[Rfam]
RNA sequence: UUCAUAGUGGUUCGUAACCCUCCCACUUGAACAACCAACAAUUGUUCGAAACAAAACUAGGAAAAU
Numbered sequence: 001u002u003c004a005u006a007g008u009g010g011u012u013c014g015u016a017a018c019c020c021u022c023c024c025a026c027u028u029g030a031a032c033a034a035c036c037a038a039c040a041a042u043u044g045u046u047c048g049a050a051a052c053a054a055a056a057c058u059a060g061g062a063a064a065a066u
Base pairs, nucleotide, nucleotide: 006027007026008025009024010023015059016058

A member of the RNA family "PreQ1 (pre queuosine) riboswitch aptamer" from Pasteurella multocida, 66 nucleotides long. From the family's description: This family is a bacterial riboswitch that binds to the metabolite preQ1, an intermediate in the biosynthesis of the modified nucleoside queuosine from GTP. One example of this riboswitch is located in the leader of the Bacillus subtilis ykvJKLM (queCDEF) operon which encodes four genes necessary for queuosine production. For this family Rfam cites "Identification of four genes necessary for biosynthesis of the modified nucleoside queuosine" (Reader et al., J Biol Chem, 2004). Its family is annotated with queuosine biosynthetic process in the Gene Ontology.